[Rfam]
RNA sequence: GAAAACCAAUAAUCGUGCGGAUUAUACAAACCAGGACUAUAAAACCGUGUUGCUAGUGCGCCUUUCUGUGGUGUAAUUUCUAGCGUCAAGUCCAUCGGAGAGAACAUCUCGUUCGUCUUAGCGCCCUUUUGUGGGUCGUCAGCAGGGCUCGCAAGGGCCCUGCCAUAUCGAUCUGCAAGGGCCGGUAGAACGUACAUGU
Numbered sequence: 001g002a003a004a005a006c007c008a009a010u011a012a013u014c015g016u017g018c019g020g021a022u023u024a025u026a027c028a029a030a031c032c033a034g035g036a037c038u039a040u041a042a043a044a045c046c047g048u049g050u051u052g053c054u055a056g057u058g059c060g061c062c063u064u065u066c067u068g069u070g071g072u073g074u075a076a077u078u079u080c081u082a083g084c085g086u087c088a089a090g091u092c093c094a095u096c097g098g099a100g101a102g103a104a105c106a107u108c109u110c111g112u113u114c115g116u117c118u119u120a121g122c123g124c125c126c127u128u129u130u131g132u133g134g135g136u137c138g139u140c141a142g143c144a145g146g147g148c149u150c151g152c153a154a155g156g157g158c159c160c161u162g163c164c165a166u167a168u169c170g171a172u173c174u175g176c177a178a179g180g181g182c183c184g185g186u187a188g189a190a191c192g193u194a195c196a197u198g199u
Stems, first nucleotide, its partner, number of pairs: 009025006031098002034093004052084005057075006116190001118188003123182005130177008144161001146159005

A member of the RNA family "Small nucleolar RNA snR35" from Lachancea dasiensis, 199 nucleotides long. Pairs were carried over by alignment from the consensus structure, which was predicted with WAR. By type it is an H/ACA-box small nucleolar RNA. Rfam links the family to the GO terms nucleolus and RNA processing.